[Rfam]
A member of the RNA family "Small nucleolar RNA Z107/R87" from Thalictrum thalictroides, 120 nucleotides long.
The base pairs follow the family's consensus structure, which was predicted with RNAfold.
A search with the family's covariance model found it, with a score of 67 bits.
By type it is a C/D-box small nucleolar RNA.
Gene Ontology terms of the family: nucleolus and RNA processing.
RNA sequence: GAUUGCAGUGAUGACUAUAUAAAAAUUCAAGCUCAACAGACUGGAAUGCAGUUUUCUUUCUUUGAAAAGAAAGAGAAAGAGAUGUGUGUGUCGACAACCCAAAUUAUGAUCUGAGCUAUC
Numbered sequence: 001g002a003u004u005g006c007a008g009u010g011a012u013g014a015c016u017a018u019a020u021a022a023a024a025a026u027u028c029a030a031g032c033u034c035a036a037c038a039g040a041c042u043g044g045a046a047u048g049c050a051g052u053u054u055u056c057u058u059u060c061u062u063u064g065a066a067a068a069g070a071a072a073g074a075g076a077a078a079g080a081g082a083u084g085u086g087u088g089u090g091u092c093g094a095c096a097a098c099c100c101a102a103a104u105u106a107u108g109a110u111c112u113g114a115g116c117u118a119u120c
Stems, first nucleotide, its partner, number of pairs: 001120003005116002